A member of the RNA family "Actino-pnp RNA" from Williamsia sterculiae, 74 nucleotides long.
The organism belongs to Williamsia, within Bacteria.
Pairs were carried over by alignment from the consensus structure, which is taken from published work.
RNA sequence: UGCGGUCCUCGGUAGUGGCGGCCGGAGUGCUGUGUGUGAACACGCAUCUCCGACCGCUUCGAUCGAAGGCCGUA
Numbered sequence: 001u002g003c004g005g006u007c008c009u010c011g012g013u014a015g016u017g018g019c020g021g022c023c024g025g026a027g028u029g030c031u032g033u034g035u036g037u038g039a040a041c042a043c044g045c046a047u048c049u050c051c052g053a054c055c056g057c058u059u060c061g062a063u064c065g066a067a068g069g070c071c072g073u074a
Base pairs, nucleotide, nucleotide: 001074002073003072004071005070006069007068009066010065011064012063013062017058018057019056020055021054023052024051025050026049027048028046029045